Notes: The family of this 130-nucleotide RNA from Corynebacterium spheniscorum is "atpB RNA".

[Rfam]
RNA sequence: CCGUCAUUACUCCGCUGAUGUGCGACGGAGUCCGGGGUAGUGGCGCGUGCACACUGAUGUCCAUCGCACCGUAGGGGAUGCCCCCAUUCCCCGCGGCCCGAACACGGGAGAGAACGCUGAGCGUUAUAAA
Numbered sequence: 001c002c003g004u005c006a007u008u009a010c011u012c013c014g015c016u017g018a019u020g021u022g023c024g025a026c027g028g029a030g031u032c033c034g035g036g037g038u039a040g041u042g043g044c045g046c047g048u049g050c051a052c053a054c055u056g057a058u059g060u061c062c063a064u065c066g067c068a069c070c071g072u073a074g075g076g077g078a079u080g081c082c083c084c085c086a087u088u089c090c091c092c093g094c095g096g097c098c099c100g101a102a103c104a105c106g107g108g109a110g111a112g113a114a115c116g117c118u119g120a121g122c123g124u125u126a127u128a129a130a
Base pairs, nucleotide, nucleotide: 002045003044004043005042006041007040008039009038010037011036012035069096070095071094072093074091075090076089077088078087079086080085
The family's RNA type in Rfam is cis-regulatory element.